RNA sequence: CGAACCUGCCUUUCAGGCAUCCUCUCCUAAAACUUCAGGCCGUCCUUCGGGGCGGCCUUUUUUUUAUCCGCC
Numbered sequence: 001c002g003a004a005c006c007u008g009c010c011u012u013u014c015a016g017g018c019a020u021c022c023u024c025u026c027c028u029a030a031a032a033c034u035u036c037a038g039g040c041c042g043u044c045c046u047u048c049g050g051g052g053c054g055g056c057c058u059u060u061u062u063u064u065u066a067u068c069c070g071c072c
Stems, first nucleotide, its partner, number of pairs: 008018004038057008
A member of the RNA family "Makes More Granules Regulator RNA (mmgR)" from Sphingomonas chungangi, 72 nucleotides long. Its Rfam clan is "suhB sRNA clan". SuhB later renamed mmgR (makes more granules regulator) was a putative non-coding RNA found multiple times in the Agrobacterium tumefaciens genome and related alpha-proteobacteria. Other non-coding RNAs uncovered in the same analysis include: speF, ybhL, metA, and serC.Several studies inSinorhizobium meliloti showed that suhB element is indeed a non-coding RNA:firstly it was detected on Northern blot and called Sm8RNA, secondly in an RNAseq study referred to as SmelC689.The mutant phenotype's (strain lacking the small RNA) cytoplasm contains higher content of polyhydroxybutyrate (PBH)storage granules than wild type strain. The sRNA is required to limit the PBH intracellular accumulation when the nitrogen-fixing Sinorhizobium meliloti is under condition of surplus carbon in relation to nitrogen. For this family Rfam cites "A genome-wide survey of sRNAs in the symbiotic nitrogen-fixing alpha-proteobacterium Sinorhizobium meliloti" (Schluter et al., BMC Genomics, 2010). A search with the family's covariance model found it, with a score of 55 bits.